[Rfam]
RNA sequence: CCAAUCGUCAAAUUGGUUGUGACGUGUUGUAUAUUUAAAUAAAAUUCAUAUCACAGCCAUUUUUGACAAGUUGGA
Numbered sequence: 001c002c003a004a005u006c007g008u009c010a011a012a013u014u015g016g017u018u019g020u021g022a023c024g025u026g027u028u029g030u031a032u033a034u035u036u037a038a039a040u041a042a043a044a045u046u047c048a049u050a051u052c053a054c055a056g057c058c059a060u061u062u063u064u065g066a067c068a069a070g071u072u073g074g075a
Stems, first nucleotide, its partner, number of pairs: 005069001007067006014059009025050003
Rfam assigns this 75-nucleotide RNA from Microctonus aethiopoides to the family "mir-2 microRNA precursor family". For this family Rfam cites "An extensive class of small RNAs in Caenorhabditis elegans" (Lee and Ambros, Science, 2001). Rfam links the family to the GO terms RISC complex and miRNA-mediated post-transcriptional gene silencing. Lineage of the source: Eukaryota > Eumetazoa > Eumetabola > Braconidae > Microctonus.